[Rfam]
RNA sequence: GGGGCUGAUCGGUUUCGACAGCGUCUGCUGAUCUGCGAGAAGCGGGCCGAGGAUGCAGGGUUAUCUCGUUAACGCCCCCUGCAAAUUGAUAAGUGCCAACUCUAAGCGCACUGACUUCUCCCUCGCUGCAUAAGCGAGCCAGAUAGUCCGUCAGACCGUGGGUGAUCCCGACACGGACCCUGGCGUCAUCUAGGGAUCUUGCUGCGACGUGGCGUCGAGACGCGUCGUGGGACUUUUCCUCGACUGGGCUCGUCGAUCUAUGUGUCUGUGCUAAAGAUCGGAGCCGAUGAGAACGCCUCCACAGACUGCGCCCGGAGAAACCCCAGUGAACCAGCGCUGGACGGGGGUUCGAUUCCCCCCAGCUCCACCA
Numbered sequence: 001g002g003g004g005c006u007g008a009u010c011g012g013u014u015u016c017g018a019c020a021g022c023g024u025c026u027g028c029u030g031a032u033c034u035g036c037g038a039g040a041a042g043c044g045g046g047c048c049g050a051g052g053a054u055g056c057a058g059g060g061u062u063a064u065c066u067c068g069u070u071a072a073c074g075c076c077c078c079c080u081g082c083a084a085a086u087u088g089a090u091a092a093g094u095g096c097c098a099a100c101u102c103u104a105a106g107c108g109c110a111c112u113g114a115c116u117u118c119u120c121c122c123u124c125g126c127u128g129c130a131u132a133a134g135c136g137a138g139c140c141a142g143a144u145a146g147u148c149c150g151u152c153a154g155a156c157c158g159u160g161g162g163u164g165a166u167c168c169c170g171a172c173a174c175g176g177a178c179c180c181u182g183g184c185g186u187c188a189u190c191u192a193g194g195g196a197u198c199u200u201g202c203u204g205c206g207a208c209g210u211g212g213c214g215u216c217g218a219g220a221c222g223c224g225u226c227g228u229g230g231g232a233c234u235u236u237u238c239c240u241c242g243a244c245u246g247g248g249c250u251c252g253u254c255g256a257u258c259u260a261u262g263u264g265u266c267u268g269u270g271c272u273a274a275a276g277a278u279c280g281g282a283g284c285c286g287a288u289g290a291g292a293a294c295g296c297c298u299c300c301a302c303a304g305a306c307u308g309c310g311c312c313c314g315g316a317g318a319a320a321c322c323c324c325a326g327u328g329a330a331c332c333a334g335c336g337c338u339g340g341a342c343g344g345g346g347g348u349u350c351g352a353u354u355c356c357c358c359c360c361a362g363c364u365c366c367a368c369c370a
Base pairs, nucleotide, nucleotide: 001366002365003364004363005362006361007360019339020338021337022336023335024334027331033326034325035324037323039321043314044313045312046311047310048068049067050066051065052064054083055082056081057080058079059078060077118142119141122138123137124136125135126134149185150184151183152182153181154180156176157175158174159173163171166196167195168194169193202230203229204228205227206226207225208224209223210222212244247285248284249283250282251281254280255279256278259273260272264306265305266304267303268300270298343359344358345357346356347355
Dot-bracket structure: (((((((...........((((((..(.....(((.(.(...((((([[[[[.(((((((...]]]]]........)))))))..................................((..(((((.......)))))..))......((((((.((((...(..[[[[.).))))...)))))).......]]]].....(((((((((.[.........))))))))).............]..(((((..(((..((...[[[[[.[.))....))))))))............].]..]]]]...)))))......).))))....)..))))))...(((((.......))))))))))))....